ZMP/ZTP riboswitch aptamer (pfl RNA motif): a 121-nucleotide RNA sequence from Paraoerskovia marina. A search with the family's covariance model found it, with a score of 52 bits. Pairs were carried over by alignment from the consensus structure, which is taken from published work. NCBI's taxonomy places the organism under Bacteria, Bacillati, Actinomycetota, Micrococcales, Paraoerskovia.

[Rfam]
RNA sequence: UGAUCGCGUCGCGACUGGCGGUCCUGGCGAUGCUCCUCACCGAGCGCGCCGGGCGGGUGGAAACAACCACCGGGGAGCGGCGUGCAGUGCAGACUUCGGGUCGUUCGCCUGGGCCCCGGUC
Numbered sequence: 001u002g003a004u005c006g007c008g009u010c011g012c013g014a015c016u017g018g019c020g021g022u023c024c025u026g027g028c029g030a031u032g033c034u035c036c037u038c039a040c041c042g043a044g045c046g047c048g049c050c051g052g053g054c055g056g057g058u059g060g061a062a063a064c065a066a067c068c069a070c071c072g073g074g075g076a077g078c079g080g081c082g083u084g085c086a087g088u089g090c091a092g093a094c095u096u097c098g099g100g101u102c103g104u105u106c107g108c109c110u111g112g113g114c115c116c117c118g119g120u121c
Stems, first nucleotide, its partner, number of pairs: 005084008015074002017109005057070004098116005